[Rfam]
RNA sequence: CUCUCCUUAUGAUCACACACUCUGAAACCUGAAGGAGUGUGUGUGAUGAUUUCUGAGAC
Numbered sequence: 001c002u003c004u005c006c007u008u009a010u011g012a013u014c015a016c017a018c019a020c021u022c023u024g025a026a027a028c029c030u031g032a033a034g035g036a037g038u039g040u041g042u043g044u045g046a047u048g049a050u051u052u053c054u055g056a057g058a059c
Base pairs, nucleotide, nucleotide: 002058003057004056005055014043015042016041017040018039019038020037021036022035023034
Dot-bracket structure: .((((........((((((((((..........))))))))))...........)))).

Annotation:
Shown here is a 59-nucleotide sequence from Astyanax mexicanus, a member of the family "Selenocysteine insertion sequence 1". The match comes from Rfam's covariance-model search (36 bits). Pairs were carried over by alignment from the consensus structure, which is taken from published work. Lineage of the source: Eukaryota > Teleostomi > Osteoglossocephalai > Clupeocephala > Astyanax. Rfam describes the family as follows. The incorporation of selenocysteine into a protein sequence is directed by an in-frame UGA codon (usually a stop codon) within the coding region of the mRNA. Selenoprotein mRNAs contain a conserved secondary structure in the 3' UTR that is required for the distinction of UGA stop from UGA selenocysteine.